[Rfam]
The record is a 466-nucleotide RNA sequence from Sclerotinia sclerotiorum, which matches "RNase MRP" in Rfam. Pairs were carried over by alignment from the consensus structure, which is taken from published work. The organism belongs to Sclerotinia sclerotiorum, within Eukaryota.
RNA sequence: UUCUCGCUCAAAGAAUCGCAUUCGAAGCACACAUACAGAAAUAUCUUCAUCGAUGUUUCAAUUCACUUUAAUGCUUUGGGAGAAAGUCCCCGGACACCCUACUUUCUAAAAGUUAGGACUGCGGAAACGCGCCGCCAUAGAAGCACUUGCGGCUUCUCUUCUACCAAUUCUUUACCUUCAAUUCAUACAUCCUUCUGCCGUUUGUACCAUUAUCCUGAAGCUUCUUGACAAUUGGGUUCAGAGCUUGGAAGACCAUAUGGAUGAAGAUAUGAGUCCGAGCUUCCUUGCAAUGUUUUCAAUUAAAUAGAUGAAGAUGGGUUAUGGGUGGUAGAAGACAUGUUCUUGAUUAAGAUGGGAGUGCUAAUGGCAGAUGAGGCUUAUUCGUCGAGAUCGAUAGUUAUGCGAUUGCUUUCCUUCGCUGCAAAGCUGGGAAAGUAACUCGAUGGGGCUUAUUCUUGAUGCAAGA
Numbered sequence: 001u002u003c004u005c006g007c008u009c010a011a012a013g014a015a016u017c018g019c020a021u022u023c024g025a026a027g028c029a030c031a032c033a034u035a036c037a038g039a040a041a042u043a044u045c046u047u048c049a050u051c052g053a054u055g056u057u058u059c060a061a062u063u064c065a066c067u068u069u070a071a072u073g074c075u076u077u078g079g080g081a082g083a084a085a086g087u088c089c090c091c092g093g094a095c096a097c098c099c100u101a102c103u104u105u106c107u108a109a110a111a112g113u114u115a116g117g118a119c120u121g122c123g124g125a126a127a128c129g130c131g132c133c134g135c136c137a138u139a140g141a142a143g144c145a146c147u148u149g150c151g152g153c154u155u156c157u158c159u160u161c162u163a164c165c166a167a168u169u170c171u172u173u174a175c176c177u178u179c180a181a182u183u184c185a186u187a188c189a190u191c192c193u194u195c196u197g198c199c200g201u202u203u204g205u206a207c208c209a210u211u212a213u214c215c216u217g218a219a220g221c222u223u224c225u226u227g228a229c230a231a232u233u234g235g236g237u238u239c240a241g242a243g244c245u246u247g248g249a250a251g252a253c254c255a256u257a258u259g260g261a262u263g264a265a266g267a268u269a270u271g272a273g274u275c276c277g278a279g280c281u282u283c284c285u286u287g288c289a290a291u292g293u294u295u296u297c298a299a300u301u302a303a304a305u306a307g308a309u310g311a312a313g314a315u316g317g318g319u320u321a322u323g324g325g326u327g328g329u330a331g332a333a334g335a336c337a338u339g340u341u342c343u344u345g346a347u348u349a350a351g352a353u354g355g356g357a358g359u360g361c362u363a364a365u366g367g368c369a370g371a372u373g374a375g376g377c378u379u380a381u382u383c384g385u386c387g388a389g390a391u392c393g394a395u396a397g398u399u400a401u402g403c404g405a406u407u408g409c410u411u412u413c414c415u416u417c418g419c420u421g422c423a424a425a426g427c428u429g430g431g432a433a434a435g436u437a438a439c440u441c442g443a444u445g446g447g448g449c450u451u452a453u454u455c456u457u458g459a460u461g462c463a464a465g466a
Stems, first nucleotide, its partner, number of pairs: 002466003006462002008459004014407006022080001023078006038059007084451003088448004120131004279368003285364003290359001294357004308348001333343003409435006